This 110-nucleotide RNA sequence from Methylocella silvestris belongs to the Rfam family "EcpR1". By type it is a small RNA. The literature on the family includes a 2010 paper in BMC Genomics by Schluter et al., "A genome-wide survey of sRNAs in the symbiotic nitrogen-fixing alpha-proteobacterium Sinorhizobium meliloti". Rfam describes the family as follows. Perviously named SmelC291, SmrC10, or Sra33. According to its overproduction phenotype it was renamed Elongated Cell Phenotype RNA1. Induced by stress,EcpR1 negatively regulates cell cycle master regulatory genes dnaA and gcrA at post-transcriptional level by base pairing between its strongly conserved GC-rich loop and the target mRNAs. It's regulation is hfq-independent but requires RNase E to regulate dnaA. Gene Ontology terms of the family: mRNA binding, negative regulation of cell cycle and regulation of translation in response to stress.
RNA sequence: UUACCCUACGGAGUGCUCAGGUCCGCCGCAUCUCCUGGGUCCGUAGGGUCGGCCGGCGCGCAAGUAGUUGGAGUGGCCUCCUCGAAACGCUACUUGCCGCCGGCCACCUU
Numbered sequence: 001u002u003a004c005c006c007u008a009c010g011g012a013g014u015g016c017u018c019a020g021g022u023c024c025g026c027c028g029c030a031u032c033u034c035c036u037g038g039g040u041c042c043g044u045a046g047g048g049u050c051g052g053c054c055g056g057c058g059c060g061c062a063a064g065u066a067g068u069u070g071g072a073g074u075g076g077c078c079u080c081c082u083c084g085a086a087a088c089g090c091u092a093c094u095u096g097c098c099g100c101c102g103g104c105c106a107c108c109u110u
Base pairs, nucleotide, nucleotide: 003049004048005047006046007045008044009043010042016039017038018037019036020035021034051105052104053103054102055101056100057099058098060097061096